[Rfam]
RNA sequence: GCUGUCCUCAGAUACAAUGGACAAUAUGCUAUUAUAAUUGCACGGCAUUGUCCUUGCUGUUUGGAGAUAAU
Numbered sequence: 001g002c003u004g005u006c007c008u009c010a011g012a013u014a015c016a017a018u019g020g021a022c023a024a025u026a027u028g029c030u031a032u033u034a035u036a037a038u039u040g041c042a043c044g045g046c047a048u049u050g051u052c053c054u055u056g057c058u059g060u061u062u063g064g065a066g067a068u069a070a071u
Stems, first nucleotide, its partner, number of pairs: 004068003008064007015056003019053005026048005032042001
RNA: mir-2355 microRNA precursor family